[Rfam]
RNA sequence: AAUGAUACUCUUGCGUUCGGCGUAACUCGCUGCUUGUGUAGGCGAGAUAUAGGGCUUCCGGCUGGAACUUAUGUCGGUUGAUCUAUAU
Numbered sequence: 001a002a003u004g005a006u007a008c009u010c011u012u013g014c015g016u017u018c019g020g021c022g023u024a025a026c027u028c029g030c031u032g033c034u035u036g037u038g039u040a041g042g043c044g045a046g047a048u049a050u051a052g053g054g055c056u057u058c059c060g061g062c063u064g065g066a067a068c069u070u071a072u073g074u075c076g077g078u079u080g081a082u083c084u085a086u087a088u
Stems, first nucleotide, its partner, number of pairs: 011025005026046006047088006055080001058077005
Shown here is an 88-nucleotide RNA sequence, a member of the family "dinG RNA". The base pairs follow the family's consensus structure, which is taken from published work. By type it is a small RNA.